Rfam assigns this 72-nucleotide RNA sequence from Izhakiella capsodis to the family "PyrD leader". The family's consensus secondary structure is taken from published work. Its family is annotated with regulation of gene expression in the Gene Ontology. The match comes from Rfam's covariance-model search (61 bits).
RNA sequence: AUUUUAUUUUAGUCCGGUAUAGCGGAUAAUCUCGUCCCGAUUCGUAUCGGGAAUUCAGGAGAUUACAUGUUC
Numbered sequence: 001a002u003u004u005u006a007u008u009u010u011a012g013u014c015c016g017g018u019a020u021a022g023c024g025g026a027u028a029a030u031c032u033c034g035u036c037c038c039g040a041u042u043c044g045u046a047u048c049g050g051g052a053a054u055u056c057a058g059g060a061g062a063u064u065a066c067a068u069g070u071u072c
Stems, first nucleotide, its partner, number of pairs: 036051006